Small nucleolar RNA SNORA49: a 139-nucleotide RNA sequence from Aegotheles bennettii. Gene Ontology terms of the family: nucleolus and RNA processing. The family's RNA type in Rfam is H/ACA-box small nucleolar RNA. Taxonomically the source falls in Aegotheles (Eukaryota, Euteleostomi, Neognathae, Strisores). The snoRNA ACA49 has no identified RNA target. NB genomic sequence 1-nt different from published.
RNA sequence: CUUCCUCAGCCUUACUCCAGGGGCUUUUGUUUUUUGUAAGGCUCCCUGGCAUUGCCUGAGGAUAAAUUGAAAGUAUGCUCAUUUCCCUCCCCAGUAAGAUUCUCAGUAUCCUCUGGGGCCUAUUACUUGAGCAAAUAUU
Numbered sequence: 001c002u003u004c005c006u007c008a009g010c011c012u013u014a015c016u017c018c019a020g021g022g023g024c025u026u027u028u029g030u031u032u033u034u035u036g037u038a039a040g041g042c043u044c045c046c047u048g049g050c051a052u053u054g055c056c057u058g059a060g061g062a063u064a065a066a067u068u069g070a071a072a073g074u075a076u077g078c079u080c081a082u083u084u085c086c087c088u089c090c091c092c093a094g095u096a097a098g099a100u101u102c103u104c105a106g107u108a109u110c111c112u113c114u115g116g117g118g119c120c121u122a123u124u125a126c127u128u129g130a131g132c133a134a135a136u137a138u139u
Stems, first nucleotide, its partner, number of pairs: 003062007011054001017049006023042005076133003080129002089118006096112001098110002
Dot-bracket structure: ..(((((((.(.....(((((((((((..........))))).))))))....).))))))).............(((.((.......((((((.(.((.........)).))))))).........)).)))......